[Rfam]
Shown here is a 91-nucleotide sequence from Saccharibacillus sacchari, a member of the family "c-di-GMP-I riboswitch aptamer". It scores 62 bits against the family's covariance model.
RNA sequence: CUCCGAGAAACGCAAACCAGUCGAAAGGCUGGGACGCAAAGUCAGGAAUCUACGGCGAGCGCCCGCUCGUUAAGAUCGUCCGACCGCCACG
Numbered sequence: 001c002u003c004c005g006a007g008a009a010a011c012g013c014a015a016a017c018c019a020g021u022c023g024a025a026a027g028g029c030u031g032g033g034a035c036g037c038a039a040a041g042u043c044a045g046g047a048a049u050c051u052a053c054g055g056c057g058a059g060c061g062c063c064c065g066c067u068c069g070u071u072a073a074g075a076u077c078g079u080c081c082g083a084c085c086g087c088c089a090c091g
Stems, first nucleotide, its partner, number of pairs: 012037002017032006041084003045081003048076003055070006